[Rfam]
RNA sequence: GGCAGCGCGGGAGGCGUCGACGCGCGGGCUGGAUACGUGCCGCCGGGUCCGCGCGGAGCCACUGGCGGGACCGACCUGCGCGCGU
Dot-bracket structure: (...(((((((.(((......((((((((.........[[[[[[..))))))))...)))...]]]]]..]...)))))))...)
Numbered sequence: 001g002g003c004a005g006c007g008c009g010g011g012a013g014g015c016g017u018c019g020a021c022g023c024g025c026g027g028g029c030u031g032g033a034u035a036c037g038u039g040c041c042g043c044c045g046g047g048u049c050c051g052c053g054c055g056g057a058g059c060c061a062c063u064g065g066c067g068g069g070a071c072c073g074a075c076c077u078g079c080g081c082g083c084g085u
Stems, first nucleotide, its partner, number of pairs: 001085001005081007013060003022054008039071001040068005
Rfam assigns this 85-nucleotide RNA to the family "c-di-GMP-II-GAG riboswitch aptamer".
The literature on the family includes a 2017 paper in Proc Natl Acad Sci U S A by Weinberg et al., "Bioinformatic analysis of riboswitch structures uncovers variant classes with altered ligand specificity".